[Rfam]
RNA: TPP riboswitch aptamer (THI element)
Organism: Oceanobacillus profundus
RNA sequence: GUUAUUCACUAGGGGAACCCUUGAUAAGGGCUGAGAAAAAAGUAGUUACUUUGAAACCCUCAAAACCUGAACAGGCUAGCACCUGCGUAGGAAUGUGGCAAGGGCAAAUU
Numbered sequence: 001g002u003u004a005u006u007c008a009c010u011a012g013g014g015g016a017a018c019c020c021u022u023g024a025u026a027a028g029g030g031c032u033g034a035g036a037a038a039a040a041a042g043u044a045g046u047u048a049c050u051u052u053g054a055a056a057c058c059c060u061c062a063a064a065a066c067c068u069g070a071a072c073a074g075g076c077u078a079g080c081a082c083c084u085g086c087g088u089a090g091g092a093a094u095g096u097g098g099c100a101a102g103g104g105c106a107a108a109u110u
Stems, first nucleotide, its partner, number of pairs: 006098004011060004018030004039052004066091004072085004